[Rfam]
This 90-nucleotide RNA sequence from Megalodesulfovibrio gigas belongs to the Rfam family "Selenocysteine transfer RNA". Clan: tRNA clan. On this family, see Mizutani and Goto, FEBS Lett 2000: "Eukaryotic selenocysteine tRNA has the 9/4 secondary structure". Rfam links the family to the GO term triplet codon-amino acid adaptor activity. Taxonomically the source falls in Megalodesulfovibrio gigas (Bacteria, Pseudomonadati, Desulfovibrionaceae, Megalodesulfovibrio).
RNA sequence: GGAAGCGUAUCGUCACCGGUGUGGCGCCUGGUCUUCAAAACCAGUGUGGGGGUGAGAGCUCCCAGGGUGGUUCGACUCCACUACGCUUCC
Numbered sequence: 001g002g003a004a005g006c007g008u009a010u011c012g013u014c015a016c017c018g019g020u021g022u023g024g025c026g027c028c029u030g031g032u033c034u035u036c037a038a039a040a041c042c043a044g045u046g047u048g049g050g051g052g053u054g055a056g057a058g059c060u061c062c063c064a065g066g067g068u069g070g071u072u073c074g075a076c077u078c079c080a081c082u083a084c085g086c087u088u089c090c
Stems, first nucleotide, its partner, number of pairs: 001090009011026006028044005047064005067081004